RNA sequence: ACUUGUACUCGCGGGAGCCCGGACGCACCGGGCUGAGAGGGAGGCUGCGGCGGCCUCCGACCGUACGAACCUGAUCCGGGUCAUGCCGGCGAAGGGAGGGGCUGGUCGUCUAUG
Numbered sequence: 001a002c003u004u005g006u007a008c009u010c011g012c013g014g015g016a017g018c019c020c021g022g023a024c025g026c027a028c029c030g031g032g033c034u035g036a037g038a039g040g041g042a043g044g045c046u047g048c049g050g051c052g053g054c055c056u057c058c059g060a061c062c063g064u065a066c067g068a069a070c071c072u073g074a075u076c077c078g079g080g081u082c083a084u085g086c087c088g089g090c091g092a093a094g095g096g097a098g099g100g101g102c103u104g105g106u107c108g109u110c111u112a113u114g
Stems, first nucleotide, its partner, number of pairs: 008100003011064004017033005040058008070095003076089004
RNA: TPP riboswitch aptamer (THI element)
Organism: Streptomyces sp. Ru73